Background:
The family of this 233-nucleotide RNA from Litchfieldia stipae is "T-box leader". Its family is annotated with tRNA binding in the Gene Ontology. The base pairs follow the family's consensus structure, which is taken from published work. The match comes from Rfam's covariance-model search (104 bits). Rfam classes the family as a cis-regulatory leader. Uncharged tRNA acts as the effector for transcription antitermination of genes in the T-box leader family. T-boxes are found upstream of many aminoacyl-tRNA synthetase genes and some amino acid biosynthetic genes usually in Gram-positive bacteria. The anticodon of a specific tRNA base pairs to a specifier sequence within the T-box motif, and the NCCA acceptor tail of the tRNA base pairs to a conserved bulge in the T-box antiterminator hairpin.

RNA sequence: CAGAAAAUGUUGAGAAGGAGAGUAAGAAAGCAUUUGCUUAUUAGAGAGAACCAUCGCCGGCUGAAAGUGGUUUAAGUGGAAUGUUUUUUGAAAUGCACCUUUGAGUCUUUUGUUGAACAUACGAGUGUAUUAGUAGGCAAAGGCGGCUGCUCGCCGUUAAGUGAGUUAAAGUUGAGGAAUCGCUAAUUAGAGGGUUCCUAAACAGAGUGGAACCGCGUGAAAACGUCUCUGUG
Numbered sequence: 001c002a003g004a005a006a007a008u009g010u011u012g013a014g015a016a017g018g019a020g021a022g023u024a025a026g027a028a029a030g031c032a033u034u035u036g037c038u039u040a041u042u043a044g045a046g047a048g049a050a051c052c053a054u055c056g057c058c059g060g061c062u063g064a065a066a067g068u069g070g071u072u073u074a075a076g077u078g079g080a081a082u083g084u085u086u087u088u089u090g091a092a093a094u095g096c097a098c099c100u101u102u103g104a105g106u107c108u109u110u111u112g113u114u115g116a117a118c119a120u121a122c123g124a125g126u127g128u129a130u131u132a133g134u135a136g137g138c139a140a141a142g143g144c145g146g147c148u149g150c151u152c153g154c155c156g157u158u159a160a161g162u163g164a165g166u167u168a169a170a171g172u173u174g175a176g177g178a179a180u181c182g183c184u185a186a187u188u189a190g191a192g193g194g195u196u197c198c199u200a201a202a203c204a205g206a207g208u209g210g211a212a213c214c215g216c217g218u219g220a221a222a223a224c225g226u227c228u229c230u231g232u233g
Stems, first nucleotide, its partner, number of pairs: 007106002015101004025089006037076003048073006108142007144156003175199007204230004215226004